[Rfam]
Shown here is a 110-nucleotide sequence, a member of the family "skipping-rope RNA". Rfam classes the family as a small RNA.
RNA sequence: AAAGCGUGAGGAUAGAAUGGCAUCGGCUAUCGCGGACUAUGAAAUAGUCUCAAGUGUAGAAGAUUAUUAAUCUUUGAUGAGAUGUUGGAAGUGAUGCCCAACCACGCUAA
Numbered sequence: 001a002a003a004g005c006g007u008g009a010g011g012a013u014a015g016a017a018u019g020g021c022a023u024c025g026g027c028u029a030u031c032g033c034g035g036a037c038u039a040u041g042a043a044a045u046a047g048u049c050u051c052a053a054g055u056g057u058a059g060a061a062g063a064u065u066a067u068u069a070a071u072c073u074u075u076g077a078u079g080a081g082a083u084g085u086u087g088g089a090a091g092u093g094a095u096g097c098c099c100a101a102c103c104a105c106g107c108u109a110a
Stems, first nucleotide, its partner, number of pairs: 003108006011031005021096005033079001034073003084102005

The sequence is in the family's curated seed alignment.